The family of this 120-nucleotide RNA sequence from Polycladospora coralii is "PyrR binding site". By type it is a cis-regulatory element. On this family, see Bonner et al., Nucleic Acids Res 2001: "Molecular recognition of pyr mRNA by the Bacillus subtilis attenuation regulatory protein PyrR". A search with the family's covariance model found it, with a score of 62 bits.
[Rfam]
RNA sequence: UGAACCUUUAAAAACAGUCCAGAGAGGCUGGCAAGGGAACGGUAUAUGUAAAUUGUAGAGAAGGGAUAUCUUCUUACUACAAUUGUUCUCCUUGUCCACUUUGGAUAAGGAUUUUUUUAU
Numbered sequence: 001u002g003a004a005c006c007u008u009u010a011a012a013a014a015c016a017g018u019c020c021a022g023a024g025a026g027g028c029u030g031g032c033a034a035g036g037g038a039a040c041g042g043u044a045u046a047u048g049u050a051a052a053u054u055g056u057a058g059a060g061a062a063g064g065g066a067u068a069u070c071u072u073c074u075u076a077c078u079a080c081a082a083u084u085g086u087u088c089u090c091c092u093u094g095u096c097c098a099c100u101u102u103g104g105a106u107a108a109g110g111a112u113u114u115u116u117u118u119a120u
Base pairs, nucleotide, nucleotide: 005036006035007034008033015030016029017028018027019026053082054081055080056079057078058077059074060073061072062071063070064069085115089111090110091109092108093107094106095105096104097103098102